RNA sequence: AUCAUGGAGAGUUUGAUCCUGGCUCAGGAUGAACGCUGGCGGUAUGCCUAACACAUGCAAGUCGAACGGAGUACUUAGGUACUCAGUGGCGGACGGGUGAGUAACGCGUGAGAAUCGGCCUUCAGGAUGGGGACAACAGAGGGAAACCGCUGCUAAUACCCAAUAAGCCGAGAGGUAAAAAGCAAUGUGCCUGAAGAAGAGCUCGCGUCCGAUUAGUUAGUUGGUGGGGUAAAAGCCUACCAAGGCAGCGAUCGGUAGCUGGUCUGAGAGGAUGAGCAGCCACACUGGGACUGAGACACGGCCCAGACUCCUACGGGAGGCAGCAGUGGGGAAUUUUCCGCAAUGGGCGAAAGCCUGACGGAGCAAUACCGCGUGAGGGAGGAAGGCUUUUGGGUUGUAAACCUCUUUUAUCAAGGAAGAAGAAAGUGACGGUACUUGAAGAAUCAGCAUCGGCUAACUCCGUGCCAGCAGCCGCGGUAAUACGGAGGAUGCAAGCGUUAUCCGGAAUCAUUG
Numbered sequence: 001a002u003c004a005u006g007g008a009g010a011g012u013u014u015g016a017u018c019c020u021g022g023c024u025c026a027g028g029a030u031g032a033a034c035g036c037u038g039g040c041g042g043u044a045u046g047c048c049u050a051a052c053a054c055a056u057g058c059a060a061g062u063c064g065a066a067c068g069g070a071g072u073a074c075u076u077a078g079g080u081a082c083u084c085a086g087u088g089g090c091g092g093a094c095g096g097g098u099g100a101g102u103a104a105c106g107c108g109u110g111a112g113a114a115u116c117g118g119c120c121u122u123c124a125g126g127a128u129g130g131g132g133a134c135a136a137c138a139g140a141g142g143g144a145a146a147c148c149g150c151u152g153c154u155a156a157u158a159c160c161c162a163a164u165a166a167g168c169c170g171a172g173a174g175g176u177a178a179a180a181a182g183c184a185a186u187g188u189g190c191c192u193g194a195a196g197a198a199g200a201g202c203u204c205g206c207g208u209c210c211g212a213u214u215a216g217u218u219a220g221u222u223g224g225u226g227g228g229g230u231a232a233a234a235g236c237c238u239a240c241c242a243a244g245g246c247a248g249c250g251a252u253c254g255g256u257a258g259c260u261g262g263u264c265u266g267a268g269a270g271g272a273u274g275a276g277c278a279g280c281c282a283c284a285c286u287g288g289g290a291c292u293g294a295g296a297c298a299c300g301g302c303c304c305a306g307a308c309u310c311c312u313a314c315g316g317g318a319g320g321c322a323g324c325a326g327u328g329g330g331g332a333a334u335u336u337u338c339c340g341c342a343a344u345g346g347g348c349g350a351a352a353g354c355c356u357g358a359c360g361g362a363g364c365a366a367u368a369c370c371g372c373g374u375g376a377g378g379g380a381g382g383a384a385g386g387c388u389u390u391u392g393g394g395u396u397g398u399a400a401a402c403c404u405c406u407u408u409u410a411u412c413a414a415g416g417a418a419g420a421a422g423a424a425a426g427u428g429a430c431g432g433u434a435c436u437u438g439a440a441g442a443a444u445c446a447g448c449a450u451c452g453g454c455u456a457a458c459u460c461c462g463u464g465c466c467a468g469c470a471g472c473c474g475c476g477g478u479a480a481u482a483c484g485g486a487g488g489a490u491g492c493a494a495g496c497g498u499u500a501u502c503c504g505g506a507a508u509c510a511u512u513g
Stems, first nucleotide, its partner, number of pairs: 009025005027503004032499006039372006045365002047330001052328003056325003061090003066087002069084006097283003106208007115200002120196007128162004137152003141148002168175002182188002209255003216246003221243008258280004262273004285306005308319004336362001338361003344357005375405004385396004411439005419430001447492005458487005468475002

Source information
Shown here is a 513-nucleotide part of an RNA from Pleurocapsales cyanobacterium LEGE 10410, a member of the family "Bacterial small subunit ribosomal RNA". Lineage of the source: Bacteria > Bacillati > Cyanobacteriota > Cyanophyceae > Pleurocapsales. Its family is annotated with ribosome and structural constituent of ribosome in the Gene Ontology.